A member of the RNA family "Bacterial small signal recognition particle RNA" from Simkania sp., 99 nucleotides long. The family is grouped with related families in Rfam's "SRP clan". Rfam classes the family as a non-coding RNA gene. From the family's description: The signal recognition particle (SRP) is a universally conserved ribonucleoprotein involved in the co-translational targeting of proteins to membranes. It scores 45 bits against the family's covariance model. Lineage of the source: Bacteria > Pseudomonadati > Chlamydiota > Parachlamydiales > Simkania.
RNA sequence: GCCGGGGAACUCAAGAAACGGACGACUUCGAAUCAGGUCAGAACCGGAAGGUAGCAGCCUUAAGGAUCAUCGUACGUGUUCUGAACCCUCUCCGGCAUU
Numbered sequence: 001g002c003c004g005g006g007g008a009a010c011u012c013a014a015g016a017a018a019c020g021g022a023c024g025a026c027u028u029c030g031a032a033u034c035a036g037g038u039c040a041g042a043a044c045c046g047g048a049a050g051g052u053a054g055c056a057g058c059c060u061u062a063a064g065g066a067u068c069a070u071c072g073u074a075c076g077u078g079u080u081c082u083g084a085a086c087c088c089u090c091u092c093c094g095g096c097a098u099u
Stems, first nucleotide, its partner, number of pairs: 004093005011085001014082002018077003022073002024068002027065002035060004043052003